[Rfam]
RNA sequence: UUGUGACCGUUGUUACGGUCAUUUCAACAUGUAACUGACCGUAAUCCCGUUCACAACA
Numbered sequence: 001u002u003g004u005g006a007c008c009g010u011u012g013u014u015a016c017g018g019u020c021a022u023u024u025c026a027a028c029a030u031g032u033a034a035c036u037g038a039c040c041g042u043a044a045u046c047c048c049g050u051u052c053a054c055a056a057c058a
Stems, first nucleotide, its partner, number of pairs: 001056006008049002012045010
This 58-nucleotide RNA from Caenorhabditis brenneri belongs to the Rfam family "mir-360 microRNA precursor family".
It is one of the family's seed sequences.
The base pairs follow the family's consensus structure, which was predicted with RNAalifold.
Gene Ontology terms of the family: miRNA-mediated post-transcriptional gene silencing and RISC complex.
On this family, see Ohler et al., RNA 2004: "Patterns of flanking sequence conservation and a characteristic upstream motif for microRNA gene identification".